RNA sequence: GCAAACUUCUGCGGGAGCCUAAGGAACUGGGCUGAGAGGGCAGCUAGGCCGCUGCCGACCGCUUGUACCUGAUUAGGGUAAUACCAGCGUAGGGAUUAAGAGAACGUUUGAC
Numbered sequence: 001g002c003a004a005a006c007u008u009c010u011g012c013g014g015g016a017g018c019c020u021a022a023g024g025a026a027c028u029g030g031g032c033u034g035a036g037a038g039g040g041c042a043g044c045u046a047g048g049c050c051g052c053u054g055c056c057g058a059c060c061g062c063u064u065g066u067a068c069c070u071g072a073u074u075a076g077g078g079u080a081a082u083a084c085c086a087g088c089g090u091a092g093g094g095a096u097u098a099a100g101a102g103a104a105c106g107u108u109u110g111a112c
Stems, first nucleotide, its partner, number of pairs: 006100003011062004017032005039056005068093004074087001076085002
The record is a 112-nucleotide sequence from Candidatus Entotheonella gemina, which matches "TPP riboswitch aptamer (THI element)" in Rfam. Lineage of the source: Bacteria > Candidatus Tectimicrobiota > Candidatus Entotheonellales > Candidatus Entotheonellaceae > Candidatus Entotheonella. Rfam links the family to the GO term thiamine pyrophosphate binding.